The family of this 86-nucleotide sequence from Fragilariopsis cylindrus is "Selenocysteine transfer RNA".
RNA sequence: GUGUACAUGAUAUAGCCUGGUGGUUAUUGCAGGCUUCAAACCUGUAGACGGCUAACGCCGUAGUUGUUCGAUUCAACCUUGCGCAC
Dot-bracket structure: ((((.((.(..((((((....))))))((((((.......)))))).(((((....))))).((((.......))))).)).))))
NCBI's taxonomy places the organism under Eukaryota, Stramenopiles, Bacillariophyceae, Fragilariopsis, Fragilariopsis cylindrus.